Rfam assigns this 76-nucleotide RNA sequence from Crocodylus porosus to the family "Mammalian CPEB3 ribozyme".

RNA sequence: AAUCACAAGUUGAAGGCCAUAGCAGAAGUGCUCACAGCAUGGCCUGUCAGAUUCCAAAAAAACUGAAAAUUCUGCU
Numbered sequence: 001a002a003u004c005a006c007a008a009g010u011u012g013a014a015g016g017c018c019a020u021a022g023c024a025g026a027a028g029u030g031c032u033c034a035c036a037g038c039a040u041g042g043c044c045u046g047u048c049a050g051a052u053u054c055c056a057a058a059a060a061a062a063c064u065g066a067a068a069a070u071u072c073u074g075c076u
Base pairs, nucleotide, nucleotide: 015044016043017042018041021076022075023074024073025072026071027070028040029039030038048065049064050063052061053060
Pairs were carried over by alignment from the consensus structure, which is taken from published work. It scores 46 bits against the family's covariance model.